Background: The record is an 80-nucleotide RNA sequence from Orthohepacivirus hominis, which matches "SL669 non-coding RNA" in Rfam. For this family Rfam cites "The Role of the RNA-RNA Interactome in the Hepatitis C Virus Life Cycle" (Romero-Lopez and Berzal-Herranz, Int J Mol Sci, 2020). By type it is a cis-regulatory element.
RNA sequence: AUGACCCCCGGCGGAAAUCCCCCAAUUUGGGUAGGGUCAUCCAUACCCUAACGUGCGGAUUCCCCCACCUCAUGGGGUAC
Numbered sequence: 001a002u003g004a005c006c007c008c009c010g011g012c013g014g015a016a017a018u019c020c021c022c023c024a025a026u027u028u029g030g031g032u033a034g035g036g037u038c039a040u041c042c043a044u045a046c047c048c049u050a051a052c053g054u055g056c057g058g059a060u061u062c063c064c065c066c067a068c069c070u071c072a073u074g075g076g077g078u079a080c
Base pairs, nucleotide, nucleotide: 003080004078005077006076007075008074010065011064013062015061016060018058019057021055023053029048030047031046032045033044036041

The base pairs follow the family's consensus structure, which was predicted with RNAfold. Taxonomically the source falls in Orthohepacivirus hominis (Viruses, Riboviria, Kitrinoviricota, Flasuviricetes).